[Rfam]
The record is an 84-nucleotide RNA from Eumeta japonica, which matches "mir-927 microRNA precursor family" in Rfam. The base pairs follow the family's consensus structure, which was predicted with RNAalifold. The source organism's lineage runs through Eukaryota, Dicondylia, Aparaglossata, Amphiesmenoptera and Eumeta. It scores 72 bits against the family's covariance model.

Nucleotides: 084
Base pairs, nucleotide, nucleotide: 010078011077012076013075014074015073016072017071018070019069020068022066023065024064027061028060029059030058031057032056033055035053036052
Number, partner (000 for none) and nucleotide at each position: 001000c002000g003000a004000c005000c006000c007000g008000g009000g010078c011077c012076g013075g014074u015073u016072u017071u018070a019069g020068a021000a022066u023065u024064c025000c026000u027061a028060c029059g030058c031057u032056u033055u034000a035053c036052c037000g038000u039000u040000g041000c042000c043000a044000a045000g046000u047000u048000u049000u050000u051000g052036g053035g054000c055033a056032a057031a058030g059029c060028g061027u062000u063000u064024g065023g066022a067000u068020u069019c070018u071017a072016a073015a074014a075013c076012c077011g078010g079000c080000c081000u082000g083000c084000g